RNA sequence: UGCAAAUGAUGUCUUUUCUCACGAUGGUCUUCCAAGCCGUUGGUGCUUUGACGACAUCGCCUAUACGGCUACACUGAUGCAGUAAC
Numbered sequence: 001u002g003c004a005a006a007u008g009a010u011g012u013c014u015u016u017u018c019u020c021a022c023g024a025u026g027g028u029c030u031u032c033c034a035a036g037c038c039g040u041u042g043g044u045g046c047u048u049u050g051a052c053g054a055c056a057u058c059g060c061c062u063a064u065a066c067g068g069c070u071a072c073a074c075u076g077a078u079g080c081a082g083u084a085a086c
Stems, first nucleotide, its partner, number of pairs: 001081004
Rfam assigns this 86-nucleotide sequence from Hemibagrus wyckioides to the family "Small nucleolar RNA SNORD35". Rfam's curators write: U35 is a C/D box snoRNA located in intron 6 of ribosomal protein L13A and intron 3 of ribosomal protein S11 in humans and at homologous positions in mouse and chicken ribosomal protein genes. U35 guides the methylation of 2'-O-ribose sites in 28S rRNA. A search with the family's covariance model found it, with a score of 61 bits. Taxonomically the source falls in Hemibagrus (Eukaryota, Bilateria, Neopterygii, Teleostei). For this family Rfam cites "Intron-encoded, antisense small nucleolar RNAs: the characterization of nine novel species points to their direct role as guides for the 2'-O-ribose methylation of rRNAs" (Nicoloso et al., J Mol Biol, 1996). The family's RNA type in Rfam is C/D-box small nucleolar RNA.